The family of this 84-nucleotide RNA sequence from Aotus nancymaae is "mir-548 microRNA precursor family".
The base pairs follow the family's consensus structure, which was predicted with WAR.
The literature on the family includes a 2010 paper in BMC Biol by Witten et al., "Ultra-high throughput sequencing-based small RNA discovery and discrete statistical biomarker analysis in a collection of cervical tumours and matched controls".
Rfam 15.1 lists 3,009 matches to the family in 27 species.
The organism belongs to Aotus, within Eukaryota.
RNA sequence: AUUAGGUUUGGUGCAAAAGCAAUUGCGGUUUUUGCCAUUGAAAGUAAUGGCAAAAACCGCAAUUGCUUUUGCACCAAACCCAAU
Numbered sequence: 001a002u003u004a005g006g007u008u009u010g011g012u013g014c015a016a017a018a019g020c021a022a023u024u025g026c027g028g029u030u031u032u033u034g035c036c037a038u039u040g041a042a043a044g045u046a047a048u049g050g051c052a053a054a055a056a057c058c059g060c061a062a063u064u065g066c067u068u069u070u071g072c073a074c075c076a077a078a079c080c081c082a083a084u
Base pairs, nucleotide, nucleotide: 001084002083003082005080006079007078008077009076010075011074012073013072014071015070016069017068018067019066020065021064022063023062024061025060026059027058028057029056030055031054032053033052034051035050036049037048038047039046040045